[Rfam]
RNA sequence: GCCAUGCCUACCGCGACGGCGGGAAAACAGAGUUUGCCCCUUUUCUCUGCUGGCAUGGCUUUCGAUUCAAAGG
Numbered sequence: 001g002c003c004a005u006g007c008c009u010a011c012c013g014c015g016a017c018g019g020c021g022g023g024a025a026a027a028c029a030g031a032g033u034u035u036g037c038c039c040c041u042u043u044u045c046u047c048u049g050c051u052g053g054c055a056u057g058g059c060u061u062u063c064g065a066u067u068c069a070a071a072g073g
Stems, first nucleotide, its partner, number of pairs: 001059008011022004028049005039073005
Annotation
Shown here is a 73-nucleotide RNA sequence from Pseudoduganella namucuonensis, a member of the family "int-alpA RNA". The family has 167 seed sequences and 577 matches in Rfam 15.1. Rfam's curators write: Acidobacteria (1 example), Planctomycetes (1 example), Proteobacteria. A search with the family's covariance model found it, with a score of 57 bits. The base pairs follow the family's consensus structure, which is taken from published work.